The family of this 142-nucleotide sequence from Cuscuta europaea is "U4 spliceosomal RNA". Pairs were carried over by alignment from the consensus structure, which is taken from published work. Rfam classes the family as a spliceosomal small nuclear RNA.
[Rfam]
RNA sequence: AUCUUUGCGCUUGGGGCAAUGACGCAGCUAGUGAGGUAUUAACCGAGGCGCGUCUAUUGCUGGUUGAAAACUAUUUCCAAACCCCCUCUUUUGCUUAGGUUCAUCCUAAGCUUUAGAGAAUUUUUGGAAGGGUUUCCUAUUU
Dot-bracket structure: ....................(((((.(((.....(((....)))..))))))))...............................((((...((((((.......))))))...))))........................